[Rfam]
RNA: Ribosomal protein L13 leader
RNA sequence: GGUAUUGUUUUUAACCCCACGAUAAGCCCCGGAAACUUAUUGUGAUGAAAAUAAAUA
Number, nucleotide and partner (000 for none) at each position: 001g000002g000003u000004a000005u000006u053007g052008u051009u050010u049011u048012u047013a000014a000015c000016c000017c000018c044019a043020c042021g041022a040023u039024a038025a037026g036027c000028c000029c000030c000031g000032g000033a000034a000035a000036c026037u025038u024039a023040u022041u021042g020043u019044g018045a000046u000047g012048a011049a010050a009051a008052u007053a006054a000055a000056u000057a000